Overview
This 96-nucleotide RNA sequence from Candidatus Phytoplasma ziziphi belongs to the Rfam family "Bacterial small signal recognition particle RNA". For this family Rfam cites "SRPDB: Signal Recognition Particle Database" (Rosenblad et al., Nucleic Acids Res, 2003). Clan: SRP clan. The organism belongs to 16SrV (Elm yellows group), within Bacteria.
RNA sequence: UAAAAAUCACCAUUCAAUGAAAUUAAGAUGAAUCUGGUCAGAACUUGGUUGGAGCAGCCAUAAGUUUUAAUUUUAUGUGAUUGGUGAUUUUUAAGA
Numbered sequence: 001u002a003a004a005a006a007u008c009a010c011c012a013u014u015c016a017a018u019g020a021a022a023u024u025a026a027g028a029u030g031a032a033u034c035u036g037g038u039c040a041g042a043a044c045u046u047g048g049u050u051g052g053a054g055c056a057g058c059c060a061u062a063a064g065u066u067u068u069a070a071u072u073u074u075a076u077g078u079g080a081u082u083g084g085u086g087a088u089u090u091u092u093a094a095g096a
Base pairs, nucleotide, nucleotide: 004090005089006088007087008086009085010084011083012082014080015077017076018075019074020073021072022071024069025068026067027066028065029064035060036059037058038057044051

The signal recognition particle (SRP) is a universally conserved ribonucleoprotein involved in the co-translational targeting of proteins to membranes.
The family's consensus secondary structure is taken from published work.